[Rfam]
A member of the RNA family "Salmonella enterica Typhi npcRNA 44" from Pantoea sp. Eser, 131 nucleotides long. It scores 62 bits against the family's covariance model. The family has 34 seed sequences and 474 matches in Rfam 15.1.
RNA sequence: CUUUAACAAUCCGGAACAAGCUGAAAAUUGAAACGACGCGUCGCGUUAUUCCUCCGUAAUAAGGAAUAGCACAGCGAUGCGUUCGAGUCUCUCAAAUGCUCAUAGCUUGCAGUGUUGUAAAACGCCUGUGG
Numbered sequence: 001c002u003u004u005a006a007c008a009a010u011c012c013g014g015a016a017c018a019a020g021c022u023g024a025a026a027a028u029u030g031a032a033a034c035g036a037c038g039c040g041u042c043g044c045g046u047u048a049u050u051c052c053u054c055c056g057u058a059a060u061a062a063g064g065a066a067u068a069g070c071a072c073a074g075c076g077a078u079g080c081g082u083u084c085g086a087g088u089c090u091c092u093c094a095a096a097u098g099c100u101c102a103u104a105g106c107u108u109g110c111a112g113u114g115u116u117g118u119a120a121a122a123c124g125c126c127u128g129u130g131g
Stems, first nucleotide, its partner, number of pairs: 020103001023101002027097003034085003038080007108130003112126001